[Rfam]
RNA sequence: CUCAGGGAGCGACCAAAGCAAAAAAGAGUGAACCGGCAGCGGCAACCCGCACGCGGCCGGUGAAU
Numbered sequence: 001c002u003c004a005g006g007g008a009g010c011g012a013c014c015a016a017a018g019c020a021a022a023a024a025a026g027a028g029u030g031a032a033c034c035g036g037c038a039g040c041g042g043c044a045a046c047c048c049g050c051a052c053g054c055g056g057c058c059g060g061u062g063a064a065u
Stems, first nucleotide, its partner, number of pairs: 032061006039054002042050002
This 65-nucleotide sequence from Pseudescherichia vulneris belongs to the Rfam family "DnaX ribosomal frameshifting element".
Rfam classes the family as a frameshift element.
This family represents a ribosomal frameshifting element found in the mRNA of the dnaX gene in E. coli. The dnaX gene has two encoded products tau and gamma which are produced in a 1:1 ratio.
Gene Ontology term of the family: translational frameshifting.
It scores 84 bits against the family's covariance model.